[Rfam]
RNA sequence: ACAAUAAAAACCCUUAUUACAUAAGGGUUUCAGAAAACUGUCCUAUAAAUUAAUACGACGGCCCUUUUACAGGCCGUCUCAUGGGAGAGGAGAAACCGGACGAAGAGCUUAUGGGGAAACGUAAGUCUUCUCCGCGG
Dot-bracket structure: ........(((((((((...)))))))))((....................................................))...........((((.((((.(((((..........)))))))))))))...

This 137-nucleotide RNA sequence from Paenibacillus silvestris belongs to the Rfam family "ylbH leader". The base pairs follow the family's consensus structure.